The family of this 172-nucleotide RNA sequence from Gehongia tenuis is "Lysine riboswitch aptamer".
The match comes from Rfam's covariance-model search (86 bits).
RNA sequence: UCAACAGAUUGAGGCGCGGGUUUGAAAAGUACACGGCCGACGGUGCAGCCGCCGGAGGACGCCGAUGGAAAGGCAAAACCGCCGAAGGGAAGAGCAGGCGCUGGGCUCCGAACUGGGCAUGCCGUAAAUAGCGGUAUGACUGUCAUCUUUAAGAUGGAGUGCUAUCUGUGAU
Numbered sequence: 001u002c003a004a005c006a007g008a009u010u011g012a013g014g015c016g017c018g019g020g021u022u023u024g025a026a027a028a029g030u031a032c033a034c035g036g037c038c039g040a041c042g043g044u045g046c047a048g049c050c051g052c053c054g055g056a057g058g059a060c061g062c063c064g065a066u067g068g069a070a071a072g073g074c075a076a077a078a079c080c081g082c083c084g085a086a087g088g089g090a091a092g093a094g095c096a097g098g099c100g101c102u103g104g105g106c107u108c109c110g111a112a113c114u115g116g117g118c119a120u121g122c123c124g125u126a127a128a129u130a131g132c133g134g135u136a137u138g139a140c141u142g143u144c145a146u147c148u149u150u151a152a153g154a155u156g157g158a159g160u161g162c163u164a165u166c167u168g169u170g171a172u
Stems, first nucleotide, its partner, number of pairs: 006167004011162001016082004021077004032067002034064004086114002092108004115141002118138008143157006
The base pairs follow the family's consensus structure, which is taken from published work.